This 370-nucleotide sequence from Ornithorhynchus anatinus belongs to the Rfam family "ncRNA Repressor of NFAT (nuclear factor of activated T cells)". The family has 24 seed sequences and 522 matches in Rfam 15.1. The source organism's lineage runs through Eukaryota, Chordata, Vertebrata, Monotremata and Ornithorhynchus. A reference for the family is Willingham et al. (2005), "A strategy for probing the function of noncoding RNAs finds a repressor of NFAT", Science.
[Rfam]
RNA sequence: AGAAGCUAAUAGAGUCAGAAACUUUGAAACUUUCCUUUGUAUAUUACAUUAAUCCAUAUAAGAAAAUCUCUUUUAAUGAGGAGUGAUGUAGUUACAAACUCUCCAGAGCCAUAAUUAGAGCAAACUAAUUGAAGUUGUGUUUUGACACACUUUCUAAAUUCACGGGUGCUGGAUGACAUAUUCACAACACUGUUGCUGCACAACCAUGGCGAUGGCAAAAUCAUUAGGCUAAUAACACUUAUUUGCAUUCUUAUCAUGCCAGCAGCUCUCCUUAAAUACUGUUUCAACCACUGCUCGUUUACUGUAAGUUUCCACUGAAAGAUAUUAACUGUAAUUAUUAGUCCUUUAGUGGAAUUUUUAAUGCUAAAGA
Numbered sequence: 001a002g003a004a005g006c007u008a009a010u011a012g013a014g015u016c017a018g019a020a021a022c023u024u025u026g027a028a029a030c031u032u033u034c035c036u037u038u039g040u041a042u043a044u045u046a047c048a049u050u051a052a053u054c055c056a057u058a059u060a061a062g063a064a065a066a067u068c069u070c071u072u073u074u075a076a077u078g079a080g081g082a083g084u085g086a087u088g089u090a091g092u093u094a095c096a097a098a099c100u101c102u103c104c105a106g107a108g109c110c111a112u113a114a115u116u117a118g119a120g121c122a123a124a125c126u127a128a129u130u131g132a133a134g135u136u137g138u139g140u141u142u143u144g145a146c147a148c149a150c151u152u153u154c155u156a157a158a159u160u161c162a163c164g165g166g167u168g169c170u171g172g173a174u175g176a177c178a179u180a181u182u183c184a185c186a187a188c189a190c191u192g193u194u195g196c197u198g199c200a201c202a203a204c205c206a207u208g209g210c211g212a213u214g215g216c217a218a219a220a221u222c223a224u225u226a227g228g229c230u231a232a233u234a235a236c237a238c239u240u241a242u243u244u245g246c247a248u249u250c251u252u253a254u255c256a257u258g259c260c261a262g263c264a265g266c267u268c269u270c271c272u273u274a275a276a277u278a279c280u281g282u283u284u285c286a287a288c289c290a291c292u293g294c295u296c297g298u299u300u301a302c303u304g305u306a307a308g309u310u311u312c313c314a315c316u317g318a319a320a321g322a323u324a325u326u327a328a329c330u331g332u333a334a335u336u337a338u339u340a341g342u343c344c345u346u347u348a349g350u351g352g353a354a355u356u357u358u359u360a361a362u363g364c365u366a367a368a369g370a
Base pairs, nucleotide, nucleotide: 047363048362049361050360051359053353054352055351056350057349060346061345062344068083069082070081071080072079073078088338089337090336091335092334093333094332095331099108100107101106118296119295120294121293122292131153132152133151134150136149137148138147139146140145164271166270168266169265194211195210196209197208198207214260215259216258217257228246229245231243232242233241234240
The family's RNA type in Rfam is non-coding RNA gene.